[Rfam]
RNA sequence: CAAACAAAGUAGCAAUAACCCCAUGUCUUGCUAAAGCAAGACAUGGGGUUAUUGCUACUUUGU
Numbered sequence: 001c002a003a004a005c006a007a008a009g010u011a012g013c014a015a016u017a018a019c020c021c022c023a024u025g026u027c028u029u030g031c032u033a034a035a036g037c038a039a040g041a042c043a044u045g046g047g048g049u050u051a052u053u054g055c056u057a058c059u060u061u062g063u
Stems, first nucleotide, its partner, number of pairs: 006061012021046002025042006
RNA: Plastid-psbA-4 3UTR RNA
Organism: Musa balbisiana